[Rfam]
A member of the RNA family "mir-192/215 microRNA precursor family" from Chiloscyllium punctatum, 76 nucleotides long. Gene Ontology terms of the family: miRNA-mediated post-transcriptional gene silencing and RISC complex.
RNA sequence: ACAGGACUAUGACCUAUGAAUUGACAGCCAGUGCAAUUACAGAUUUGCCUGUCAGUUCUAUAGGCCACUAUCCUGU
Numbered sequence: 001a002c003a004g005g006a007c008u009a010u011g012a013c014c015u016a017u018g019a020a021u022u023g024a025c026a027g028c029c030a031g032u033g034c035a036a037u038u039a040c041a042g043a044u045u046u047g048c049c050u051g052u053c054a055g056u057u058c059u060a061u062a063g064g065c066c067a068c069u070a071u072c073c074u075g076u
Stems, first nucleotide, its partner, number of pairs: 001076006010067002013064004018058010029047003
This family represents the human microRNA (miRNA) precursors mir-192 and mir-215. Animal miRNAs are transcribed as ~70nt precursors and subsequently processed by the Dicer enzyme to give a ~22nt product. In this case the mature sequence comes from the 5' arm of the precursor. Taxonomically the source falls in Chiloscyllium (Eukaryota, Craniata, Chondrichthyes, Hemiscylliidae). The family's consensus secondary structure was predicted with PFOLD.